[Rfam]
Nucleotides: 121
Stems, first nucleotide, its partner, number of pairs: 002039004007035002009032001011030004061115003066110003073103005079097003084089001
Number, partner (000 for none) and nucleotide at each position: 001000a002039g003038g004037c005036a006000a007035u008034c009032u010000c011030u012029u013028u014027g015000a016000u017000u018000g019000g020000u021000u022000c023000a024000u025000u026000g027014c028013a029012a030011g031000a032009g033000a034008g035007g036005u037004g038003u039002u040000a041000a042000a043000c044000u045000g046000c047000u048000c049000g050000a051000a052000c053000a054000u055000u056000g057000a058000u059000g060000u061115c062114u063113u064000c065000u066110g067109c068108u069000c070000u071000u072000c073103a074102g075101a076100c077099u078000u079097g080096c081095u082000g083000a084089g085000a086000u087000g088000a089084c090000u091000c092000u093000g094000a095081a096080g097079c098000u099077g100076g101075u102074c103073u104000a105000g106000u107000a108068a109067g110066c111000u112000u113063a114062a115061g116000u117000a118000c119000a120000u121000u
About this RNA: Rfam assigns this 121-nucleotide RNA from Corymbia citriodora to the family "Small nucleolar RNA snoR77". A search with the family's covariance model found it, with a score of 98 bits. The literature on the family includes a 2002 paper in Curr Biol by Marker et al., "Experimental RNomics: identification of 140 candidates for small non-messenger RNAs in the plant Arabidopsis thaliana".